[Rfam]
RNA sequence: GAGACUGUGUGAUAUGUUUGAUAUUCGGUUGUUCUUUUGUUCAACACGUCAACUAAAUAUCAGACAUAUUCUCACAGAGUC
Number, nucleotide and partner (000 for none) at each position: 001g000002a000003g000004a000005c077006u076007g075008u074009g073010u000011g070012a069013u068014a067015u066016g065017u064018u063019u062020g061021a060022u059023a058024u057025u056026c000027g054028g053029u052030u051031g050032u000033u000034c000035u000036u000037u000038u000039g000040u000041u000042c000043a000044a000045c000046a000047c000048g000049u000050c031051a030052a029053c028054u027055a000056a025057a024058u023059a022060u021061c020062a019063g018064a017065c016066a015067u014068a013069u012070u011071c000072u000073c009074a008075c007076a006077g005078a000079g000080u000081c000